[Rfam]
Rfam assigns this 569-nucleotide part of an RNA from Thelohanellus kitauei to the family "Eukaryotic large subunit ribosomal RNA". NCBI's taxonomy places the organism under Eukaryota, Eumetazoa, Myxozoa, Myxosporea, Thelohanellus.
RNA sequence: GACUCUAGUUUGAUAUGGUGAGGAGACAUGAGAGGCGUAGAAUAGGUGGGAGAGAUUUGGGGCAACCCAGGUUUCGCCGGUGAAAUACCACCACUCUUAUCGUUUCUUUACUCAAUCGGUGAUGUAGGAGGCGCCCAGUUGCUGUGUUGGUCAUUAAGCUACUUCAUGGCUAUCGAUGGCAGACUCUGGGUAAACCAGGUUUGUCGUCUUUAGUUGAGGAGAGCAGACUCGACCGGACUGGAUACGCCGCUUGUAAGAUUUAAGAUGGGCUGUCUGCUAUGGUUGUGCCAACUGGGCAACCAUUUGGUACGGCCGUGGUUGACUGGCUUUUCGAGAGUGUGUCCAUCGACCUAGCCGUGGUUGGCGAGCAAUCGUCAAUUGCAGGUUACGACCGAUGACAGUAUCAAAUGGGGAGUUUGACUGGGGCGGUACAUUCUUUAAAAUGCAACGAGAAUGUCCUAAGGUGGGCUCACCGUGGACAGAAACCACGGGUAGAGUAUAAGGGCAAAAGCCUGCUUGAUUUUGAUUUUCAGUACGAAUACAAACCACGAAAGUGUGGCCUAACGAUC
Numbered sequence: 001g002a003c004u005c006u007a008g009u010u011u012g013a014u015a016u017g018g019u020g021a022g023g024a025g026a027c028a029u030g031a032g033a034g035g036c037g038u039a040g041a042a043u044a045g046g047u048g049g050g051a052g053a054g055a056u057u058u059g060g061g062g063c064a065a066c067c068c069a070g071g072u073u074u075c076g077c078c079g080g081u082g083a084a085a086u087a088c089c090a091c092c093a094c095u096c097u098u099a100u101c102g103u104u105u106c107u108u109u110a111c112u113c114a115a116u117c118g119g120u121g122a123u124g125u126a127g128g129a130g131g132c133g134c135c136c137a138g139u140u141g142c143u144g145u146g147u148u149g150g151u152c153a154u155u156a157a158g159c160u161a162c163u164u165c166a167u168g169g170c171u172a173u174c175g176a177u178g179g180c181a182g183a184c185u186c187u188g189g190g191u192a193a194a195c196c197a198g199g200u201u202u203g204u205c206g207u208c209u210u211u212a213g214u215u216g217a218g219g220a221g222a223g224c225a226g227a228c229u230c231g232a233c234c235g236g237a238c239u240g241g242a243u244a245c246g247c248c249g250c251u252u253g254u255a256a257g258a259u260u261u262a263a264g265a266u267g268g269g270c271u272g273u274c275u276g277c278u279a280u281g282g283u284u285g286u287g288c289c290a291a292c293u294g295g296g297c298a299a300c301c302a303u304u305u306g307g308u309a310c311g312g313c314c315g316u317g318g319u320u321g322a323c324u325g326g327c328u329u330u331u332c333g334a335g336a337g338u339g340u341g342u343c344c345a346u347c348g349a350c351c352u353a354g355c356c357g358u359g360g361u362u363g364g365c366g367a368g369c370a371a372u373c374g375u376c377a378a379u380u381g382c383a384g385g386u387u388a389c390g391a392c393c394g395a396u397g398a399c400a401g402u403a404u405c406a407a408a409u410g411g412g413g414a415g416u417u418u419g420a421c422u423g424g425g426g427c428g429g430u431a432c433a434u435u436c437u438u439u440a441a442a443a444u445g446c447a448a449c450g451a452g453a454a455u456g457u458c459c460u461a462a463g464g465u466g467g468g469c470u471c472a473c474c475g476u477g478g479a480c481a482g483a484a485a486c487c488a489c490g491g492g493u494a495g496a497g498u499a500u501a502a503g504g505g506c507a508a509a510a511g512c513c514u515g516c517u518u519g520a521u522u523u524u525g526a527u528u529u530u531c532a533g534u535a536c537g538a539a540u541a542c543a544a545a546c547c548a549c550g551a552a553a554g555u556g557u558g559g560c561c562u563a564a565c566g567a568u569c
Stems, first nucleotide, its partner, number of pairs: 002416004009408007018111010028100007045092005052075009115396005125388003131142003158382002419432001420430003433455006458559002464516006470496002473491006497506002521545003526540004547556003
Dot-bracket structure: .((((...(((((((..(((((((((((((((((..........(((((..(((((((((......)))))))))............))))).))))))).))))))))))...(((((.....(((...(((......)))...............((.............................................................................................................................................................................................................................))...)))...))))).....)))))))....))))..((((.....))).)((((((...........))))))..((....((((((((.((((((.......))))))...))((......))....))))))....(((..((((.......))))..))).(((....))).))..........